[Rfam]
RNA sequence: CACCGGUUCCGCGGCAGCAAUUCAACUUAGUACGAGAGGAACCGUUGAUUCGCAUAAUUGGCAAUUGCGUCAGGCCGGUCGGCCUGCGGCGCGAACCUACCAUGCGCCGGAUUAUGACUGAACGCCUCUAAGUCAGAAUCCAAGCUGAAAGCGUUAUUACAUUCUCUGGGCUCACCCUGGCUAAGAAUAGGGGACGCUUCGUGCGCCCCCAAGAGCAUAUGCCGAGACGCUCGUGGAACAAGAGCGGCAACCGUUUCAGGGAAACUAAUCAUUUGCAGACGACUUAAACCGAACGGGGUAUUGUACGCGGCAGAGUAGCCUUGCUGCUACGAUCCGCUGAGAUUCAGCCCUUGUUCUUGACCCCC
Numbered sequence: 001c002a003c004c005g006g007u008u009c010c011g012c013g014g015c016a017g018c019a020a021u022u023c024a025a026c027u028u029a030g031u032a033c034g035a036g037a038g039g040a041a042c043c044g045u046u047g048a049u050u051c052g053c054a055u056a057a058u059u060g061g062c063a064a065u066u067g068c069g070u071c072a073g074g075c076c077g078g079u080c081g082g083c084c085u086g087c088g089g090c091g092c093g094a095a096c097c098u099a100c101c102a103u104g105c106g107c108c109g110g111a112u113u114a115u116g117a118c119u120g121a122a123c124g125c126c127u128c129u130a131a132g133u134c135a136g137a138a139u140c141c142a143a144g145c146u147g148a149a150a151g152c153g154u155u156a157u158u159a160c161a162u163u164c165u166c167u168g169g170g171c172u173c174a175c176c177c178u179g180g181c182u183a184a185g186a187a188u189a190g191g192g193g194a195c196g197c198u199u200c201g202u203g204c205g206c207c208c209c210c211a212a213g214a215g216c217a218u219a220u221g222c223c224g225a226g227a228c229g230c231u232c233g234u235g236g237a238a239c240a241a242g243a244g245c246g247g248c249a250a251c252c253g254u255u256u257c258a259g260g261g262a263a264a265c266u267a268a269u270c271a272u273u274u275g276c277a278g279a280c281g282a283c284u285u286a287a288a289c290c291g292a293a294c295g296g297g298g299u300a301u302u303g304u305a306c307g308c309g310g311c312a313g314a315g316u317a318g319c320c321u322u323g324c325u326g327c328u329a330c331g332a333u334c335c336g337c338u339g340a341g342a343u344u345c346a347g348c349c350c351u352u353g354u355u356c357u358u359g360a361c362c363c364c365c
Base pairs, nucleotide, nucleotide: 005158006157007156010153011152012151015147016146017145018144020050022048023047024046025045026044051106052105053104054103055102059099060098061097066093067092068091069090070089071086072085073084074083075082076081109141110140115135116134117133118132119131163262164261165260166259167258168257169256269360270359272286275283291356292355293354294353295352296350297349298348300343301342307337308336309335310334312333315330316329317328318327319326

A member of the RNA family "Eukaryotic large subunit ribosomal RNA" from Closterium sp. NIES-67, 365 nucleotides of a longer RNA. The family's consensus secondary structure is taken from published work. NCBI's taxonomy places the organism under Eukaryota, Viridiplantae, Desmidiales, Closterium, Closterium peracerosum-strigosum-littorale complex.